This 351-nucleotide part of an RNA from uncultured Chloroflexi bacterium HF0200_09I09 belongs to the Rfam family "Bacterial large subunit ribosomal RNA". Rfam's curators put it in the seed alignment. Taxonomically the source falls in Chloroflexota (Bacteria, Bacillati). Gene Ontology terms of the family: structural constituent of ribosome and ribosome. Pairs were carried over by alignment from the consensus structure, which is taken from published work.
RNA sequence: CGAGAGAACCUUCGUUAAGGAACUCGGCAAUCUAGCUCCGUAACUUCGGGAGAAGGAGCGCCCCGGUUAGUGAAGGACCUUGCGUCCUGAGCUGGCUAGGGUCGCAGAGAGCAGGCCCAGGCGACUGUUUAACAAAAACACAGGUCUCUGCUAACGCGUAAGCGGAUGUAUAGGGGCUGACGCCUGCCCAGUGCCGGAAGGUUAAGGAGCGCGGUGCAAGCCGCAAACUGAAGCCCCGGUGAACGGCGGCCGUAACUAUAACGGUCCUAAGGUAGCGAAAUUCCUUGUCGGGUAAGUUCCGACCCGCACGAAUGGCGUAACGAUCUGGGCGCUGUCUCAACGAAGGACUCG
Numbered sequence: 001c002g003a004g005a006g007a008a009c010c011u012u013c014g015u016u017a018a019g020g021a022a023c024u025c026g027g028c029a030a031u032c033u034a035g036c037u038c039c040g041u042a043a044c045u046u047c048g049g050g051a052g053a054a055g056g057a058g059c060g061c062c063c064c065g066g067u068u069a070g071u072g073a074a075g076g077a078c079c080u081u082g083c084g085u086c087c088u089g090a091g092c093u094g095g096c097u098a099g100g101g102u103c104g105c106a107g108a109g110a111g112c113a114g115g116c117c118c119a120g121g122c123g124a125c126u127g128u129u130u131a132a133c134a135a136a137a138a139c140a141c142a143g144g145u146c147u148c149u150g151c152u153a154a155c156g157c158g159u160a161a162g163c164g165g166a167u168g169u170a171u172a173g174g175g176g177c178u179g180a181c182g183c184c185u186g187c188c189c190a191g192u193g194c195c196g197g198a199a200g201g202u203u204a205a206g207g208a209g210c211g212c213g214g215u216g217c218a219a220g221c222c223g224c225a226a227a228c229u230g231a232a233g234c235c236c237c238g239g240u241g242a243a244c245g246g247c248g249g250c251c252g253u254a255a256c257u258a259u260a261a262c263g264g265u266c267c268u269a270a271g272g273u274a275g276c277g278a279a280a281u282u283c284c285u286u287g288u289c290g291g292g293u294a295a296g297u298u299c300c301g302a303c304c305c306g307c308a309c310g311a312a313u314g315g316c317g318u319a320a321c322g323a324u325c326u327g328g329g330c331g332c333u334g335u336c337u338c339a340a341c342g343a344a345g346g347a348c349u350c351g
Stems, first nucleotide, its partner, number of pairs: 001351004009346008018337003035059005044049001060102004065097001074088005103107001115330007122322002126140003143178008151168001155164003181317004186247003191244002193240005200235003206229002211224005248266006267271001277304001287303006